[Rfam]
RNA sequence: UUUUUAGUAUAAAUAUAUCCCAUGCAAUAUUUGGGAUAUUCUUGCACUAAAA
Numbered sequence: 001u002u003u004u005u006a007g008u009a010u011a012a013a014u015a016u017a018u019c020c021c022a023u024g025c026a027a028u029a030u031u032u033g034g035g036a037u038a039u040u041c042u043u044g045c046a047c048u049a050a051a052a
Base pairs, nucleotide, nucleotide: 006048007047008046010044011043012042015039016038018036019035020034021033022031